[Rfam]
Nucleotides: 175
Stems, first nucleotide, its partner, number of pairs: 001175007009167007017159003021155008030146004035141005041135008051125002054122002057119002063113003068107011085096002
Number, partner (000 for none) and nucleotide at each position: 001175a002174a003173c004172c005171a006170c007169a008000c009167u010166a011165u012164c013163a014162a015161u016000a017159a018158a019157u020000a021155g022154a023153u024152u025151c026150a027149c028148c029000c030146g031145u032144g033143a034000g035141a036140u037139g038138a039137c040000g041135u042134g043133g044132u045131u046130g047129u048128u049000c050000c051125a052124c053000a054122u055121a056000g057119g058118a059000c060000a061000a062000u063113g064112a065111c066000g067000u068107g069106c070105a071104u072103c073102c074101u075100a076099u077098u078097a079000c080000c081000a082000g083000c084000c085096a086095u087000c088000u089000c090000a091000c092000g093000a094000a095086a096085u097078u098077a099076g100075u101074a102073g103072g104071a105070u106069g107068c108000c109000a110000c111065g112064u113063c114000c115000u116000c117000a118058u119057c120000c121055u122054a123000g124052g125051u126000g127000a128048a129047a130046c131045a132044a133043c134042c135041a136000c137039g138038u139037c140036a141035u142000c143033u144032c145031a146030c147000a148028g149027g150026u151025g152024a153023a154022u155021c156000c157019a158018u159017u160000c161015a162014u163013u164012g165011a166010u167009a168000u169007u170006g171005u172004g173003g174002u175001u
Rfam assigns this 175-nucleotide RNA sequence from Oryza barthii to the family "MIR807 microRNA precursor family". On this family, see Luo et al., FEBS Lett 2006: "Rice embryogenic calli express a unique set of microRNAs, suggesting regulatory roles of microRNAs in plant post-embryogenic development". The source organism's lineage runs through Eukaryota, Streptophyta, Streptophytina, Spermatophyta and Oryza. The match comes from Rfam's covariance-model search (201 bits). Rfam 15.1 lists 1,514 matches to the family in 13 species.